A member of the RNA family "mir-81 microRNA precursor family" from Steinernema hermaphroditum, 86 nucleotides long.
Rfam links the family to the GO terms miRNA-mediated post-transcriptional gene silencing and RISC complex.
The match comes from Rfam's covariance-model search (68 bits).
Its Rfam clan is "mir-81 clan".
Rfam 15.1 lists 68 matches to the family in 54 species.
RNA sequence: UAGGAACGGGCAAACGGUUUUCACGUUGAUCUGCAGAAAGACUUAGUACCUCUGAGAUCAUUGUGAAAGCUAGUUGCCCCUUUUUG
Number, nucleotide and partner (000 for none) at each position: 001u000002a000003g000004g000005a000006a000007c000008g000009g078010g077011c076012a075013a000014a000015c000016g071017g070018u069019u068020u067021u066022c065023a064024c063025g000026u000027u060028g059029a058030u057031c056032u055033g000034c000035a053036g052037a051038a047039a000040g000041a000042c000043u000044u000045a000046g000047u038048a000049c000050c000051u037052c036053u035054g000055a032056g031057a030058u029059c028060a027061u000062u000063g024064u023065g022066a021067a020068a019069g018070c017071u016072a000073g000074u000075u012076g011077c010078c009079c000080c000081u000082u000083u000084u000085u000086g000